Source information:
Shown here is a 276-nucleotide RNA sequence from Orycteropus afer, a member of the family "7SK RNA". NCBI's taxonomy places the organism under Eukaryota, Eumetazoa, Deuterostomia, Gnathostomata, Orycteropus afer. Rfam classes the family as a non-coding RNA gene. It scores 244 bits against the family's covariance model. Its Rfam clan is "7SK clan".
RNA sequence: GGAUGUGAGGGCGAUCUGGCUGCGACAUCUGUCACCCCAUUGAUUGCCAGCGUUGAUUCGGCUGAUCUGGCUGGCUAGGCGGGUGUCCCCUUCCUCCCUCACCGAUCCAUGUGCGUCCCUCCCGAAGCUGCACGCUCGGUUGAAGAGGACGACCUUCCCCGAUAGAGGAGGACCGACCUUCGGUCAAGGGUAUAUGAGUAGCUGCUAGAACCUCCAUAGUUAUACCAUCUUAGAAACCCAAGGAGGGGUCGUUAGGAGGUGGAUCUGACUCAAUUG
Numbered sequence: 001g002g003a004u005g006u007g008a009g010g011g012c013g014a015u016c017u018g019g020c021u022g023c024g025a026c027a028u029c030u031g032u033c034a035c036c037c038c039a040u041u042g043a044u045u046g047c048c049a050g051c052g053u054u055g056a057u058u059c060g061g062c063u064g065a066u067c068u069g070g071c072u073g074g075c076u077a078g079g080c081g082g083g084u085g086u087c088c089c090c091u092u093c094c095u096c097c098c099u100c101a102c103c104g105a106u107c108c109a110u111g112u113g114c115g116u117c118c119c120u121c122c123c124g125a126a127g128c129u130g131c132a133c134g135c136u137c138g139g140u141u142g143a144a145g146a147g148g149a150c151g152a153c154c155u156u157c158c159c160c161g162a163u164a165g166a167g168g169a170g171g172a173c174c175g176a177c178c179u180u181c182g183g184u185c186a187a188g189g190g191u192a193u194a195u196g197a198g199u200a201g202c203u204g205c206u207a208g209a210a211c212c213u214c215c216a217u218a219g220u221u222a223u224a225c226c227a228u229c230u231u232a233g234a235a236a237c238c239c240a241a242g243g244a245g246g247g248g249u250c251g252u253u254a255g256g257a258g259g260u261g262g263a264u265c266u267g268a269c270u271c272a273a274u275u276g
Stems, first nucleotide, its partner, number of pairs: 001108003005102007013093002018090002024087010035074002037070003042067004046062003116171002118168004122139004127135002140162003147158003201265001203263001211259005224249003229245003